The family of this 86-nucleotide RNA sequence from Enterovibrio coralii is "c-di-GMP-I-GGC riboswitch aptamer".
Taxonomically the source falls in Enterovibrio (Bacteria, Pseudomonadati, Gammaproteobacteria, Vibrionales).
For this family Rfam cites "Bioinformatic analysis of riboswitch structures uncovers variant classes with altered ligand specificity" (Weinberg et al., Proc Natl Acad Sci U S A, 2017).
Gene Ontology term of the family: cyclic-di-GMP binding.
RNA sequence: AGAGCAAAAGCCAAACCUAUCGUGAGGUGGGGACGGAAAGUUACAGGUCUCUCUAAGCAGGACUAGAGAUGGCUGGGCUACCUCGA
Numbered sequence: 001a002g003a004g005c006a007a008a009a010g011c012c013a014a015a016c017c018u019a020u021c022g023u024g025a026g027g028u029g030g031g032g033a034c035g036g037a038a039a040g041u042u043a044c045a046g047g048u049c050u051c052u053c054u055a056a057g058c059a060g061g062a063c064u065a066g067a068g069a070u071g072g073c074u075g076g077g078c079u080a081c082c083u084c085g086a
Stems, first nucleotide, its partner, number of pairs: 003083002011036002016031006034072001039079004044075003047070006
Dot-bracket structure: ..((......((...((((((....))))))..[))..((((.(((((((((............)))))).])))))))..))...